[Rfam]
RNA: Streptomyces-metH RNA
Organism: Streptomyces sp. ISL-94
RNA sequence: CAGUCCGCCACGUGGGACGACCUCACCGGGGCGGGCCCCGCCGGUUACCCUGACCGCGUGCACCCUUGACACCGAAGGGGUGCAAAGCCGACAGCCGUCGCAUCCCAGGGAGCUCUCCAUG
Number, nucleotide and partner (000 for none) at each position: 001c000002a000003g000004u000005c000006c000007g000008c000009c000010a000011c000012g000013u000014g000015g000016g000017a000018c000019g000020a000021c000022c000023u000024c000025a000026c000027c000028g000029g000030g000031g000032c000033g000034g000035g000036c000037c000038c000039c000040g000041c000042c000043g000044g000045u000046u000047a000048c000049c000050c000051u000052g000053a000054c000055c000056g000057c000058g000059u084060g083061c082062a081063c000064c078065c077066u076067u075068g000069a000070c000071a000072c000073c000074g000075a067076a066077g065078g064079g000080g000081u062082g061083c060084a059085a000086a000087g101088c100089c000090g099091a098092c097093a000094g000095c000096c000097g092098u091099c090100g088101c087102a000103u000104c000105c000106c000107a000108g000109g000110g000111a000112g000113c000114u000115c000116u000117c000118c000119a000120u000121g000